Background:
Shown here is a 74-nucleotide sequence from Punica granatum, a member of the family "Plastid-ycf2 5UTR RNA". The organism belongs to Punica, within Eukaryota. By type it is a cis-regulatory element. Pairs were carried over by alignment from the consensus structure, which was predicted with LocARNA. Plastid ycf2 is a non-coding RNA (ncRNA) recognised in plastids. It was found in the prime untranslated region (5UTR) of ycf2 genes, it presents a tRNA-like motif which suggests it can be involved in mRNA maturation, particularly involved in defining the precise 5' end of the transcript.
[Rfam]
RNA sequence: GUGCAUCCAGUUGAAAUUGAACCUACGAAUUCGCCAAUUAUGAGUUGAACGUUUUAACCAUCAGCCAUGGAUGC
Numbered sequence: 001g002u003g004c005a006u007c008c009a010g011u012u013g014a015a016a017u018u019g020a021a022c023c024u025a026c027g028a029a030u031u032c033g034c035c036a037a038u039u040a041u042g043a044g045u046u047g048a049a050c051g052u053u054u055u056a057a058c059c060a061u062c063a064g065c066c067a068u069g070g071a072u073g074c
Base pairs, nucleotide, nucleotide: 003074004073005072006071007070008069010026011025013023040068041067042066044065045064046063047062048061051059